[Rfam]
RNA sequence: CAUUGUUCUCAGGGCGGGGUGAAAGUCCCCACCGGCGGUAAUGGCUCUUUGGCCUCAGCCCGCGAGCGCCCGUGACGGCCGGCGUGCGGUUCCCCACCGACGCGGUCACGACCGGGGUCAGCAGAUUCGGUGUGAUUCCGAAGCCGACGGUGAUAGUCCGGAUGGAAGAGAAUGGCU
Number, nucleotide and partner (000 for none) at each position: 001c000002a000003u175004u174005g173006u172007u171008c170009u169010c168011a000012g000013g000014g000015c000016g000017g029018g028019g027020u000021g000022a000023a000024a000025g000026u000027c019028c018029c017030c000031a157032c156033c146034g145035g063036c062037g061038g060039u000040a000041a000042u000043g000044g000045c000046u000047c000048u000049u000050u000051g000052g000053c000054c000055u000056c000057a000058g144059c143060c038061c037062g036063c035064g000065a000066g122067c121068g000069c000070c000071c000072g000073u000074g000075a000076c000077g000078g000079c000080c000081g000082g000083c000084g000085u000086g000087c000088g000089g000090u000091u000092c000093c000094c000095c000096a000097c000098c000099g000100a000101c000102g000103c000104g000105g000106u000107c000108a000109c000110g000111a000112c000113c000114g000115g000116g000117g000118u000119c000120a000121g067122c066123a000124g000125a000126u142127u141128c140129g139130g138131u000132g000133u000134g000135a000136u000137u000138c130139c129140g128141a127142a126143g059144c058145c034146g033147a000148c160149g159150g158151u000152g000153a000154u000155a000156g032157u031158c150159c149160g148161g000162a000163u000164g000165g000166a000167a000168g010169a009170g008171a007172a006173u005174g004175g003176c000177u000
Rfam assigns this 177-nucleotide sequence from Halomonas stenophila to the family "FMN riboswitch aptamer (RFN element)". A search with the family's covariance model found it, with a score of 109 bits. The source organism's lineage runs through Bacteria, Pseudomonadati, Gammaproteobacteria, Oceanospirillales and Halomonas.